[Rfam]
RNA sequence: UGUGCUAUACUAGUAGGGUUGAAUAAAGCAACCCUUGGUGCUUAGCUUCUUUCACCAAGCAUAUUACACGCGGGCAACCGCCAAAGGAGAAAAGAUG
Numbered sequence: 001u002g003u004g005c006u007a008u009a010c011u012a013g014u015a016g017g018g019u020u021g022a023a024u025a026a027a028g029c030a031a032c033c034c035u036u037g038g039u040g041c042u043u044a045g046c047u048u049c050u051u052u053c054a055c056c057a058a059g060c061a062u063a064u065u066a067c068a069c070g071c072g073g074g075c076a077a078c079c080g081c082c083a084a085a086g087g088a089g090a091a092a093a094g095a096u097g
Stems, first nucleotide, its partner, number of pairs: 018032004034059007046089006070081004

About this RNA: Shown here is a 97-nucleotide sequence from Streptococcus pneumoniae, a member of the family "PreQ1-II (pre queuosine) riboswitch aptamer". Lineage of the source: Bacteria > Bacillota > Bacilli > Lactobacillales > Streptococcus pneumoniae. On this family, see Meyer et al., RNA 2008: "Confirmation of a second natural preQ1 aptamer class in Streptococcaceae bacteria". Rfam's curators write: preQ1-II riboswitch was first reported for Weinberg et al. 2007 it was recognised in Streptococcaceae and Lactococcus families in 5' untranslated regions of genes of a membrane protein classified as COG4708 or DUF988. Meyers et al. 2008 confirm that preQ1-II recognise the queuosine (Q) precursor pre-queuosine 1 (preQ1). Q is a hyper modified nucleoside present in some anticodons in tRNAs (Try, Asn, Asp and His).